[Rfam]
RNA sequence: GGCACGUGUAAUCGUUGCGGAGCAACGAUCGCAAAAGA
Numbered sequence: 001g002g003c004a005c006g007u008g009u010a011a012u013c014g015u016u017g018c019g020g021a022g023c024a025a026c027g028a029u030c031g032c033a034a035a036a037g038a
Stems, first nucleotide, its partner, number of pairs: 005031002013027006
The record is a 38-nucleotide sequence from Candidatus Entotheonella gemina, which matches "Selenocysteine insertion sequence 4" in Rfam. A search with the family's covariance model found it, with a score of 51 bits. NCBI's taxonomy places the organism under Bacteria, Candidatus Tectimicrobiota, Candidatus Entotheonellia, Candidatus Entotheonellaceae, Candidatus Entotheonella. Rfam links the family to the GO term selenocysteine incorporation.